[Rfam]
RNA sequence: AAUCAAGAGUUUCGACCACGUGGCCCUGGCCGGUCGAACGGCAACCCUCGCAACCAUAGUGGGGUGCCCCAGGUGAAGAUUCGGCGUCUCGGCACCAGUCGCGGGCGUAAGUAUGGCGC
Number, nucleotide and partner (000 for none) at each position: 001a081002a080003u079004c078005a000006a000007g000008a000009g039010u000011u038012u037013c036014g035015a034016c033017c000018a000019c000020g000021u000022g031023g030024c000025c000026c000027u000028g000029g000030c023031c022032g000033g016034u015035c014036g013037a012038a011039c009040g068041g067042c066043a000044a000045c064046c063047c062048u000049c059050g000051c000052a000053a000054c000055c000056a000057u000058a000059g049060u000061g000062g047063g046064g045065u000066g042067c041068c040069c000070c000071a000072g000073g000074u000075g000076a000077a000078g004079a003080u002081u001082c000083g000084g108085c107086g106087u105088c104089u103090c101091g100092g099093c098094a000095c000096c000097a000098g093099u092100c091101g090102c000103g089104g088105g087106c086107g085108u084109a000110a000111g000112u000113a000114u000115g000116g000117c000118g000119c000
The record is a 119-nucleotide RNA from Arthrobacter psychrolactophilus, which matches "SAM (S-adenosyl methionine) riboswitch aptamer" in Rfam. Taxonomically the source falls in Arthrobacter (Bacteria, Actinomycetes, Micrococcales, Micrococcaceae). The family's consensus secondary structure is taken from published work. The match comes from Rfam's covariance-model search (73 bits). A reference for the family is Weinberg et al. (2008), "The aptamer core of SAM-IV riboswitches mimics the ligand-binding site of SAM-I riboswitches", RNA. From the family's description: SAM-IV is a mRNA element that regulates gene expression via direct sensing of S-adenosylmethionine (SAM or AdoMet). SAM-IV riboswitches share conserved nucleotide positions with the previously described SAM-I riboswitches sequence analysis and molecular recognition experiments suggest that SAM-I and SAM-IV riboswitches share similar ligand binding sites, but have different scaffolds.